Rfam assigns this 82-nucleotide sequence from Falco tinnunculus to the family "Small nucleolar RNA SNORD103/SNORD85". A search with the family's covariance model found it, with a score of 53 bits. The source organism's lineage runs through Eukaryota, Theropoda, Australaves, Falconidae and Falco.
RNA sequence: UCUGGCAGGAAUGAUACUCUUACCCUUGCUGAGAGUGCUGUUCAGUAAUGAGAGCGUUUUGAAGUACUUGUUCUGAGUGAGG
Numbered sequence: 001u002c003u004g005g006c007a008g009g010a011a012u013g014a015u016a017c018u019c020u021u022a023c024c025c026u027u028g029c030u031g032a033g034a035g036u037g038c039u040g041u042u043c044a045g046u047a048a049u050g051a052g053a054g055c056g057u058u059u060u061g062a063a064g065u066a067c068u069u070g071u072u073c074u075g076a077g078u079g080a081g082g
Stems, first nucleotide, its partner, number of pairs: 001082003005078002
Dot-bracket structure: (((.((......................................................................)).)))